Rfam assigns this 130-nucleotide RNA from Herbinix luporum to the family "c-di-AMP riboswitch aptamer (ydaO/yuaA leader)". The match comes from Rfam's covariance-model search (86 bits). This family represents a conserved RNA structure found upstream of the ydaO and yuaA genes in Bacillus subtilis and related genes in other bacteria. Rfam links the family to the GO terms regulation of gene expression and cyclic-di-AMP binding. NCBI's taxonomy places the organism under Bacteria, Bacillota, Clostridia, Lachnospiraceae, Herbinix. Pairs were carried over by alignment from the consensus structure.
[Rfam]
RNA sequence: UAAUAGGCAUUUCCGAAUAUCUUUAAGGUAGUGGGGGACCCAACUUUCUGGGGUGAAUCCUAUCAAUAGGAGGGGCAACUUGGUAGCCCUAACCCGUCAGCUAAUCCCAUAGGAAAAAAACCAAGCGUAU
Numbered sequence: 001u002a003a004u005a006g007g008c009a010u011u012u013c014c015g016a017a018u019a020u021c022u023u024u025a026a027g028g029u030a031g032u033g034g035g036g037g038a039c040c041c042a043a044c045u046u047u048c049u050g051g052g053g054u055g056a057a058u059c060c061u062a063u064c065a066a067u068a069g070g071a072g073g074g075g076c077a078a079c080u081u082g083g084u085a086g087c088c089c090u091a092a093c094c095c096g097u098c099a100g101c102u103a104a105u106c107c108c109a110u111a112g113g114a115a116a117a118a119a120a121c122c123a124a125g126c127g128u129a130u
Stems, first nucleotide, its partner, number of pairs: 011115004018030003031110006041050002051095003059070004073089004